[Rfam]
RNA: Small nucleolar SNORD12/SNORD106
RNA sequence: UUGAGUGGAUAUGAUGUCUUAUCUUUUUUCCCCAGCUUAUCGACUAAGCUGAUUAAUGCUGUAAUAAAAAGCCAACUUUUCUGAUCCAUCCAU
Numbered sequence: 001u002u003g004a005g006u007g008g009a010u011a012u013g014a015u016g017u018c019u020u021a022u023c024u025u026u027u028u029u030c031c032c033c034a035g036c037u038u039a040u041c042g043a044c045u046a047a048g049c050u051g052a053u054u055a056a057u058g059c060u061g062u063a064a065u066a067a068a069a070a071g072c073c074a075a076c077u078u079u080u081c082u083g084a085u086c087c088a089u090c091c092a093u
Stems, first nucleotide, its partner, number of pairs: 002092002005089005